[Rfam]
RNA sequence: CUGUAUUCUACAGUGCAUGUGUCUCCAGUGAAUAUGAUCUACUGGAGAGGCAGCUCUGUGUGAGUAAC
Numbered sequence: 001c002u003g004u005a006u007u008c009u010a011c012a013g014u015g016c017a018u019g020u021g022u023c024u025c026c027a028g029u030g031a032a033u034a035u036g037a038u039c040u041a042c043u044g045g046a047g048a049g050g051c052a053g054c055u056c057u058g059u060g061u062g063a064g065u066a067a068c
Base pairs, nucleotide, nucleotide: 006064007063008062010059011058012057013056015054016053018052019051020050022048023047024046025045026044027043028042029041
mir-139 microRNA precursor family: a 68-nucleotide RNA from Coregonus sp. 'balchen'. Its family is annotated with RISC complex and miRNA-mediated post-transcriptional gene silencing in the Gene Ontology. The match comes from Rfam's covariance-model search (75 bits).